The record is a 91-nucleotide sequence from Dioscorea zingiberensis, which matches "Small nucleolar RNA Z162" in Rfam.
Taxonomically the source falls in Dioscorea (Eukaryota, Streptophyta, Spermatophyta, Dioscoreales).
A reference for the family is Chen et al. (2003), "The high diversity of snoRNAs in plants: identification and comparative study of 120 snoRNA genes from Oryza sativa", Nucleic Acids Res.
The family has 9 seed sequences and 146 matches in Rfam 15.1.
The match comes from Rfam's covariance-model search (50 bits).
Gene Ontology terms of the family: RNA processing and nucleolus.

[Rfam]
RNA sequence: CUGGGCAUGAUGAGGAAUUUAAAAAUUUCAUCUUUUUUGAGGCCUAAAGGUCGUUGAUCUUUCUUGAAGUCCUUUUCAUUCUGAAUGCCCA
Numbered sequence: 001c002u003g004g005g006c007a008u009g010a011u012g013a014g015g016a017a018u019u020u021a022a023a024a025a026u027u028u029c030a031u032c033u034u035u036u037u038u039g040a041g042g043c044c045u046a047a048a049g050g051u052c053g054u055u056g057a058u059c060u061u062u063c064u065u066g067a068a069g070u071c072c073u074u075u076u077c078a079u080u081c082u083g084a085a086u087g088c089c090c091a
Stems, first nucleotide, its partner, number of pairs: 004089005010079005042051003
Dot-bracket structure: ...(((((.(((((...........................(((....))).......................))))).....)))))..